About this RNA
The family of this 53-nucleotide RNA from Nocardioides caeni is "L17-Actino-Proteobacteria ribosomal protein leader". A reference for the family is Eckert and Weinberg (2020), "Discovery of 20 novel ribosomal leader candidates in bacteria and archaea", BMC Microbiol. It scores 38 bits against the family's covariance model. Rfam classes the family as a cis-regulatory leader. The source organism's lineage runs through Bacteria, Bacillati, Actinomycetes, Propionibacteriales and Nocardioides.
[Rfam]
Nucleotides: 053
Stems, first nucleotide, its partner, number of pairs: 001016003004012002023053003029050006
Number, partner (000 for none) and nucleotide at each position: 001016c002015c003014g004012g005011u006000a007000c008000c009000u010000g011005a012004c013000a014003c015002g016001g017000c018000c019000g020000g021000a022000a023053c024052u025051g026000a027000u028000c029050c030049c031048c032047g033046g034045u035000a036000c037000c038000u039000c040000a041000u042000a043000c044000g045034g046033c047032c048031g049030g050029g051025c052024a053023g